[Rfam]
RNA sequence: AGCCUUCUGAAUCCGCAUAGAGAUUUCAUCAGACACCAGACCAUCUAGACUGAUGAGACUCAAGAUAAAUGGAGCG
Dot-bracket structure: .((.((.(..(((......(((.(((((((.....................))))))))))..)))..).)).)).
A member of the RNA family "mir-3492 microRNA precursor family" from Schistosoma haematobium, 76 nucleotides long. The family has 2 seed sequences and 21,496 matches in Rfam 15.1. The base pairs follow the family's consensus structure, which was predicted with RNAalifold.